[Rfam]
RNA sequence: CGCGUUUUUUGCCCAGGCGGAGCUCGACCGCCGAUGCAAGCGCUGAGGAGUUUUGUCGACCAACACCGCCGGUCCUAUGGGGUCGAGCCUAUCUGCCGGGUCUUGCAGAUAGCUCCA
Numbered sequence: 001c002g003c004g005u006u007u008u009u010u011g012c013c014c015a016g017g018c019g020g021a022g023c024u025c026g027a028c029c030g031c032c033g034a035u036g037c038a039a040g041c042g043c044u045g046a047g048g049a050g051u052u053u054u055g056u057c058g059a060c061c062a063a064c065a066c067c068g069c070c071g072g073u074c075c076u077a078u079g080g081g082g083u084c085g086a087g088c089c090u091a092u093c094u095g096c097c098g099g100g101u102c103u104u105g106c107a108g109a110u111a112g113c114u115c116c117a
Stems, first nucleotide, its partner, number of pairs: 016032005078117005089112002092109005098103001
Description
The family of this 117-nucleotide sequence from Acidithiobacillus caldus is "ALIL pseudoknot". Lineage of the source: Bacteria > Pseudomonadota > Acidithiobacillia > Acidithiobacillus > Acidithiobacillus caldus. The family's RNA type in Rfam is cis-regulatory element. It scores 103 bits against the family's covariance model. On this family, see Mazauric et al., J Biol Chem 2008: "Apical loop-internal loop RNA pseudoknots: a new type of stimulator of -1 translational frameshifting in bacteria".